[Rfam]
RNA: antisense RNA of dnaA mRNA
RNA sequence: UUUAGCAUCUGGACGAUUCGCGAUGAUGCCAUUCCCUACCGCAUGCAAGAGGUGAGUUUUACCCAGACCGGUGCCACCAUA
Numbered sequence: 001u002u003u004a005g006c007a008u009c010u011g012g013a014c015g016a017u018u019c020g021c022g023a024u025g026a027u028g029c030c031a032u033u034c035c036c037u038a039c040c041g042c043a044u045g046c047a048a049g050a051g052g053u054g055a056g057u058u059u060u061a062c063c064c065a066g067a068c069c070g071g072u073g074c075c076a077c078c079a080u081a
Base pairs, nucleotide, nucleotide: 005042006041011036012035016032017031020029021028051078052077053076054075056074057073061072062071063070